RNA sequence: UGAACAGUAUCAUGAAUUUGAACUGUAUCAAGUUUAAUUAAAAAUUUGUUAUGUAUAAUUUUAAUAUCGCUUGGAUUAUUUACUAUAACCGAGACGAAUGC
Numbered sequence: 001u002g003a004a005c006a007g008u009a010u011c012a013u014g015a016a017u018u019u020g021a022a023c024u025g026u027a028u029c030a031a032g033u034u035u036a037a038u039u040a041a042a043a044a045u046u047u048g049u050u051a052u053g054u055a056u057a058a059u060u061u062u063a064a065u066a067u068c069g070c071u072u073g074g075a076u077u078a079u080u081u082a083c084u085a086u087a088a089c090c091g092a093g094a095c096g097a098a099u100g101c
Stems, first nucleotide, its partner, number of pairs: 001030003004026005010021002067097003070093005076088003